Description:
FMN riboswitch aptamer (RFN element): a 151-nucleotide sequence from Brevibacillus fulvus. Rfam's curators write: The RFN element is a highly conserved domain that is found frequently in the 5'-untranslated regions of prokaryotic mRNAs that encode for flavin mononucleotide (FMN) biosynthesis and transport proteins. NCBI's taxonomy places the organism under Bacteria, Bacillati, Bacilli, Caryophanales, Brevibacillus.

RNA sequence: ACAUUCCUUCGGGGCAGGGUGAAAUUCCCGACCGGCGGUGAUCACUGCAUGUAUAGUGUAAGCCCGCGAGCCUCUGGUUACUUGUAAGCAGAGUGCAGGAUCUGGUGCGAUUCCAGAGCCGACAGUACAGUCUGGAUGGGAGAAGGAUGAC
Number, nucleotide and partner (000 for none) at each position: 001a000002c000003a000004u000005u147006c146007c145008u144009u143010c142011g000012g000013g000014g000015c000016a000017g029018g028019g027020u000021g000022a000023a000024a000025u000026u000027c019028c018029c017030g000031a131032c130033c121034g120035g067036c066037g065038g064039u000040g000041a000042u000043c000044a000045c000046u000047g000048c000049a000050u000051g000052u000053a000054u000055a000056g000057u000058g000059u000060a000061a000062g119063c118064c038065c037066g036067c035068g000069a000070g000071c000072c095073u000074c000075u000076g000077g000078u000079u000080a000081c000082u000083u000084g000085u000086a000087a000088g000089c000090a000091g000092a000093g000094u000095g072096c000097a000098g000099g000100a000101u117102c116103u115104g114105g113106u000107g000108c000109g000110a000111u000112u000113c105114c104115a103116g102117a101118g063119c062120c034121g033122a000123c134124a133125g132126u000127a000128c000129a000130g032131u031132c125133u124134g123135g000136a000137u000138g000139g000140g000141a000142g010143a009144a008145g007146g006147a005148u000149g000150a000151c000